RNA sequence: GGUGGCGGGGCGAUUCAGUGCUCGGAAUCACAAAACAACCUUAAUGGUUGAAAUAAUUCUGAGGAAAGUCCCUGGACCUGCGGCUGAAAGAGUCCGUACCUGGUGGUGCGCAGUCGAAUGUGGAAAACUUUAAUAAGACCCUGGAUGACUAUGAGAGCUAUGAACCUAUAGGUGAGCUCGGUCAUUUAUUCGGAAGGGAGCAUUCGAUUUUCGUCCAAUUCAGAGUAACGCUGUAAAUCUGAACAGAAUAGGGCUUACCACACUGUCAC
Numbered sequence: 001g002g003u004g005g006c007g008g009g010g011c012g013a014u015u016c017a018g019u020g021c022u023c024g025g026a027a028u029c030a031c032a033a034a035a036c037a038a039c040c041u042u043a044a045u046g047g048u049u050g051a052a053a054u055a056a057u058u059c060u061g062a063g064g065a066a067a068g069u070c071c072c073u074g075g076a077c078c079u080g081c082g083g084c085u086g087a088a089a090g091a092g093u094c095c096g097u098a099c100c101u102g103g104u105g106g107u108g109c110g111c112a113g114u115c116g117a118a119u120g121u122g123g124a125a126a127a128c129u130u131u132a133a134u135a136a137g138a139c140c141c142u143g144g145a146u147g148a149c150u151a152u153g154a155g156a157g158c159u160a161u162g163a164a165c166c167u168a169u170a171g172g173u174g175a176g177c178u179c180g181g182u183c184a185u186u187u188a189u190u191c192g193g194a195a196g197g198g199a200g201c202a203u204u205c206g207a208u209u210u211u212c213g214u215c216c217a218a219u220u221c222a223g224a225g226u227a228a229c230g231c232u233g234u235a236a237a238u239c240u241g242a243a244c245a246g247a248a249u250a251g252g253g254c255u256u257a258c259c260a261c262a263c264u265g266u267c268a269c
Stems, first nucleotide, its partner, number of pairs: 002269007010261001014235001016233004022062007036050005066256003070253004082094004095110006133208002142192006151185004155179004165172002
Rfam assigns this 269-nucleotide sequence from Meloidogyne graminicola to the family "RNase MRP". NCBI's taxonomy places the organism under Eukaryota, Nematoda, Tylenchina, Tylenchoidea, Meloidogyne. Rfam classes the family as a ribozyme. The match comes from Rfam's covariance-model search (76 bits).